About this RNA
The record is a 107-nucleotide sequence from Flavobacterium tibetense, which matches "Flavo-1 RNA" in Rfam.
[Rfam]
RNA sequence: GUUUAGCCCAGAUAGUAGUGAAAAGCUUUUUUGUGAAAAAAUGAUGUUUUUGUUAGUAGAAAAACCCAUUUUUUGCAAAAAACUUGUAACGUAUAGCUGGAUUAGCU
Numbered sequence: 001g002u003u004u005a006g007c008c009c010a011g012a013u014a015g016u017a018g019u020g021a022a023a024a025g026c027u028u029u030u031u032u033g034u035g036a037a038a039a040a041a042u043g044a045u046g047u048u049u050u051u052g053u054u055a056g057u058a059g060a061a062a063a064a065c066c067c068a069u070u071u072u073u074u075g076c077a078a079a080a081a082a083c084u085u086g087u088a089a090c091g092u093a094u095a096g097c098u099g100g101a102u103u104a105g106c107u
Stems, first nucleotide, its partner, number of pairs: 009099003013095002018090002023085003029080012